This 75-nucleotide sequence from Engelhardtia mirabilis belongs to the Rfam family "c-di-GMP-I-GGC riboswitch aptamer". The base pairs follow the family's consensus structure, which is taken from published work. Taxonomically the source falls in Engelhardtia (Bacteria, Pseudomonadati, Planctomycetota, Planctomycetia).
RNA sequence: AACGAGAAGGGCAAACCAACCGCGAGGUUGGGGCGCAAAGCCGCGGGCCCCUAGUGGGCAGCCGGGCUACCGAAA
Numbered sequence: 001a002a003c004g005a006g007a008a009g010g011g012c013a014a015a016c017c018a019a020c021c022g023c024g025a026g027g028u029u030g031g032g033g034c035g036c037a038a039a040g041c042c043g044c045g046g047g048c049c050c051c052u053a054g055u056g057g058g059c060a061g062c063c064g065g066g067c068u069a070c071c072g073a074a075a
Stems, first nucleotide, its partner, number of pairs: 003072002011036002016031006034061001039068004044064003047059003